[Rfam]
RNA: U7 small nuclear RNA
RNA sequence: GAGUGUACACAGCUCUUUCAGAAUUUUUCUAACAGGAUUUCAGACCUUGGUUGGAAAUCCCAA
Numbered sequence: 001g002a003g004u005g006u007a008c009a010c011a012g013c014u015c016u017u018u019c020a021g022a023a024u025u026u027u028u029c030u031a032a033c034a035g036g037a038u039u040u041c042a043g044a045c046c047u048u049g050g051u052u053g054g055a056a057a058u059c060c061c062a063a
Base pairs, nucleotide, nucleotide: 035060036059037058038057039056040055041054043052044051045050